[Rfam]
RNA: U5 spliceosomal RNA
RNA sequence: AUACUCUGGUUUCUUUUCAAAUCGAAUAAAUCUUUCGCCUUUUACUAAAGAUUUCCGUGGAGAGGAACGAUCAUGAGUGGUUAGGAAUUUUUGGGGGUUCUGCUUUGGCAGAGCU
Numbered sequence: 001a002u003a004c005u006c007u008g009g010u011u012u013c014u015u016u017u018c019a020a021a022u023c024g025a026a027u028a029a030a031u032c033u034u035u036c037g038c039c040u041u042u043u044a045c046u047a048a049a050g051a052u053u054u055c056c057g058u059g060g061a062g063a064g065g066a067a068c069g070a071u072c073a074u075g076a077g078u079g080g081u082u083a084g085g086a087a088u089u090u091u092u093g094g095g096g097g098u099u100c101u102g103c104u105u106u107g108g109c110a111g112a113g114c115u
Base pairs, nucleotide, nucleotide: 003078004077005076006075009068010067011066012065013064014063015062016061017060018059019058028054029053030052031051032050033049034048035047095115097114098113099112100111101110102109